Overview
The family of this 80-nucleotide sequence from Ursus maritimus is "Small nucleolar RNA U2-19". A reference for the family is Tycowski et al. (2004), "Guide RNAs with 5' Caps and Novel Box C/D snoRNA-like Domains for Modification of snRNAs in Metazoa", Curr Biol. The family's RNA type in Rfam is C/D-box small nucleolar RNA.
[Rfam]
RNA sequence: GAUUAAUGAUGAAAAUAGCCAAAUCUGAGCAUCAGAAGACCUGCCAGUCUACCUGAUACAUGAUCUCUGCAGUUAUGAGA
Dot-bracket structure: ............................(.(((...((((......))))....))).).....................
Rfam links the family to the GO terms RNA processing and nucleolus.